[Rfam]
RNA sequence: CGCCAAGAACCGUGAGGAAAUGUCUCCCCUUGCGGAUCUGGUAAUUUCAUGACAAAGGAG
Numbered sequence: 001c002g003c004c005a006a007g008a009a010c011c012g013u014g015a016g017g018a019a020a021u022g023u024c025u026c027c028c029c030u031u032g033c034g035g036a037u038c039u040g041g042u043a044a045u046u047u048c049a050u051g052a053c054a055a056a057g058g059a060g
Stems, first nucleotide, its partner, number of pairs: 003041003007038002010035008
RNA: L20-Deltaproteobacteria ribosomal protein leader